The family of this 62-nucleotide RNA sequence from Perca flavescens is "Selenocysteine insertion sequence 1". The incorporation of selenocysteine into a protein sequence is directed by an in-frame UGA codon (usually a stop codon) within the coding region of the mRNA. Selenoprotein mRNAs contain a conserved secondary structure in the 3' UTR that is required for the distinction of UGA stop from UGA selenocysteine. The selenocysteine insertion sequence (SECIS) is around 60 nt in length and adopts a hairpin structure which is sufficiently well-defined and conserved to act as a computational screen for selenoprotein genes. Rfam classes the family as a cis-regulatory element.
[Rfam]
RNA sequence: UUUACUAAAUGAAGAAACUCCUUGAAACCUUUUUGUAAGGGAGUUUCUGAUGAACAUGUAAA
Numbered sequence: 001u002u003u004a005c006u007a008a009a010u011g012a013a014g015a016a017a018c019u020c021c022u023u024g025a026a027a028c029c030u031u032u033u034u035g036u037a038a039g040g041g042a043g044u045u046u047c048u049g050a051u052g053a054a055c056a057u058g059u060a061a062a
Stems, first nucleotide, its partner, number of pairs: 001062005014047010028035001